Bacterial small subunit ribosomal RNA: a 583-nucleotide part of an RNA from Senegalimassilia anaerobia. The base pairs follow the family's consensus structure, which is taken from published work. Gene Ontology terms of the family: structural constituent of ribosome and ribosome.
RNA sequence: UGACGGGGGCCCGCACAAGCAGCGGAGCAUGUGGCUUAAUUCGAAGCAACGCGAAGAACCUUACCAGGGCUUGACAUGCAGGUGAAGCGGCGGAGACGCCGUGGCCGAGAGGAGCCUGCACAGGUGGUGCAUGGCUGUCGUCAGCUCGUGUCGUGAGAUGUUGGGUUAAGUCCCGCAACGAGCGCAACCCCUGCCCCGUGUUGCCAGCAUUCAGUUGGGGACUCGCGGGGGACUGCCGGCGUCAAGCCGGAGGAAGGUGGGGACGACGUCAAGUCAUCAUGCCCCUUAUGCCCUGGGCCGCACACGUGCUACAAUGGCCGGUACAGAGGGUUGCGACCCCGCGAGGGGGAGCGGAUCCCGCAAAGCCGGCCCCAGUUCGGAUCGGAGGCUGCAACCCGCCUCCGUGAAGCCGGAGUUGCUAGUAAUCGCGGAUCAGCACGCCGCGGUGAAUACGUUCCCGGGCCUUGUACACACCGCCCGUCACACCACCCGAGUCGUCUGCACCCGAAGCCGCCGGCCGAACCCUUUCAGGGGCGGAGGCGUCGAAGGUGUGGAGGGUGAGGGGGGUGAAGUCGUAACAAGG
Number, nucleotide and partner (000 for none) at each position: 001u471002g470003a468004c467005g466006g000007g465008g464009g463010c462011c461012c460013g459014c000015a455016c454017a000018a000019g419020c418021a417022g416023c415024g312025g000026a310027g309028c308029a307030u306031g305032u304033g303034g301035c300036u000037u000038a000039a000040u055041u054042c053043g052044a000045a000046g000047c000048a000049a000050c000051g000052c043053g042054a041055a040056g000057a000058a000059c000060c000061u000062u000063a000064c296065c295066a294067g293068g292069g291070c290071u000072u000073g000074a000075c000076a000077u120078g119079c118080a117081g116082g115083u114084g000085a000086a000087g102088c101089g100090g099091c098092g097093g000094a000095g000096a000097c092098g091099c090100c089101g088102u087103g000104g000105c112106c111107g000108a000109g000110a000111g106112g105113a000114g083115c082116c081117u080118g079119c078120a077121c000122a000123g285124g284125u000126g283127g282128u281129g280130c000131a000132u279133g278134g274135c273136u272137g270138u000139c268140g267141u000142c000143a000144g183145c182146u181147c180148g179149u178150g159151u158152c157153g000154u000155g000156a000157g152158a151159u150160g000161u000162u175163g174164g173165g172166u000167u000168a000169a000170g000171u000172c165173c164174c163175g162176c000177a000178a149179c148180g147181a146182g145183c144184g000185c000186a000187a000188c000189c262190c261191c260192u259193g000194c230195c229196c228197c227198g226199u225200g224201u000202u000203g000204c219205c218206a000207g000208c217209a216210u000211u000212c000213a000214g000215u000216u209217g208218g205219g204220g000221a000222c000223u000224c200225g199226c198227g197228g196229g195230g194231g000232a000233c253234u252235g000236c250237c249238g248239g247240c246241g000242u000243c000244a000245a000246g240247c239248c238249g237250g236251a000252g234253g233254a000255a000256g000257g000258u000259g192260g191261g190262g189263a000264c000265g000266a000267c140268g139269u000270c137271a000272a136273g135274u134275c000276a000277u000278c133279a132280u129281g128282c127283c126284c124285c123286u000287u000288a000289u000290g070291c069292c068293c067294u066295g065296g064297g000298c000299c000300g035301c034302a000303c033304a032305c031306g030307u029308g028309c027310u026311a000312c024313a000314a000315u000316g371317g370318c369319c368320g367321g366322u365323a000324c000325a000326g000327a000328g359329g358330g357331u000332u000333g352334c351335g000336a000337c000338c347339c346340c345341g000342c000343g000344a000345g340346g339347g338348g000349g000350a000351g334352c333353g000354g000355a000356u000357c330358c329359c328360g000361c000362a000363a000364a000365g322366c321367c320368g319369g318370c317371c316372c000373c000374a000375g000376u000377u000378c409379g000380g000381a000382u000383c404384g403385g402386a401387g400388g399389c398390u000391g000392c000393a000394a000395c000396c000397c000398g389399c388400c387401u386402c385403c384404g383405u000406g000407a000408a000409g378410c000411c000412g000413g000414a000415g023416u022417u021418g020419c019420u000421a000422g000423u000424a000425a447426u446427c445428g444429c443430g442431g441432a000433u000434c000435a000436g000437c000438a000439c000440g000441c431442c430443g429444c428445g427446g426447u425448g000449a000450a000451u000452a000453c000454g016455u015456u000457c000458c000459c013460g012461g011462g010463c009464c008465u007466u005467g004468u003469a000470c002471a001472c000473a000474c582475c000476g579477c000478c000479c575480g574481u000482c000483a000484c569485a568486c567487c566488a000489c564490c563491c562492g000493a000494g559495u558496c557497g000498u555499c554500u553501g552502c551503a550504c549505c548506c000507g000508a000509a000510g544511c000512c542513g541514c540515c539516g000517g000518c537519c536520g535521a000522a000523c533524c532525c000526u000527u000528u000529c000530a000531g000532g524533g523534g000535c520536g519537g518538a000539g515540g514541c513542g512543u000544c510545g000546a000547a000548g505549g504550u503551g502552u501553g500554g499555a498556g000557g496558g495559u494560g000561a000562g491563g490564g489565g000566g487567g486568u485569g484570a000571a000572g000573u000574c480575g479576u000577a000578a000579c476580a000581a000582g474583g000
Description
NCBI's taxonomy places the organism under Bacteria, Bacillati, Coriobacteriia, Coriobacteriaceae, Senegalimassilia anaerobia.